[Rfam]
RNA sequence: AGAAUAACGGGGAAUGAAGAUCUCCCCCGGGAAACCGGAACCGCCGUAUCAGGCUGAUGACUUCUGUGCUGUG
Numbered sequence: 001a002g003a004a005u006a007a008c009g010g011g012g013a014a015u016g017a018a019g020a021u022c023u024c025c026c027c028c029g030g031g032a033a034a035c036c037g038g039a040a041c042c043g044c045c046g047u048a049u050c051a052g053g054c055u056g057a058u059g060a061c062u063u064c065u066g067u068g069c070u071g072u073g
Stems, first nucleotide, its partner, number of pairs: 010026004016064004021059001043054003
A member of the RNA family "Fluoride riboswitch aptamer (crcB RNA motif)" from Anaeromassilibacillus sp. An200, 73 nucleotides long. The organism belongs to Anaeromassilibacillus, within Bacteria. The match comes from Rfam's covariance-model search (37 bits).